[Rfam]
RNA sequence: AAGUUUCGUAGAGGUUGCGUUACUCAAGAGUAGACUAUAGGAUAUGUAAGGAUAGCUGACUAUAGUGGAAAGGGAAUAACGCCGAAAGAAUUUUAUAUCCUUAACUAUAAGAUUCUUGGGGAUACGGUUAAGAGCCGUAUGACUGUCAUCAAUAUAUUUGAUGGGGCGCUACAUGUACA
Number, nucleotide and partner (000 for none) at each position: 001a000002a000003g000004u000005u000006u000007c000008g172009u171010a170011g169012a000013g000014g000015u000016u000017g082018c081019g080020u079021u078022a077023c000024u075025c074026a000027a000028g000029a000030g000031u000032a000033g000034a066035c065036u064037a063038u062039a061040g060041g000042a000043u000044a000045u000046g000047u000048a000049a000050g000051g000052a000053u000054a000055g000056c000057u000058g000059a000060c040061u039062a038063u037064a036065g035066u034067g000068g000069a000070a000071a000072g000073g000074g025075a024076a000077u022078a021079a020080c019081g018082c017083c000084g000085a000086a117087a116088g115089a114090a113091u112092u111093u110094u109095a108096u107097a106098u000099c000100c000101u000102u000103a000104a000105c000106u097107a096108u095109a094110a093111g092112a091113u090114u089115c088116u087117u086118g144119g143120g000121g000122a140123u139124a138125c137126g136127g135128u134129u000130a000131a000132g000133a000134g128135c127136c126137g125138u124139a123140u122141g000142a000143c119144u118145g000146u164147c163148a162149u161150c160151a159152a158153u000154a000155u000156a000157u000158u152159u151160g150161a149162u148163g147164g146165g000166g000167c000168g000169c011170u010171a009172c008173a000174u000175g000176u000177a000178c000179a000
The family of this 179-nucleotide sequence from Clostridium cellulovorans is "Lysine riboswitch aptamer". The family's consensus secondary structure is taken from published work. Gene Ontology term of the family: lysine biosynthetic process.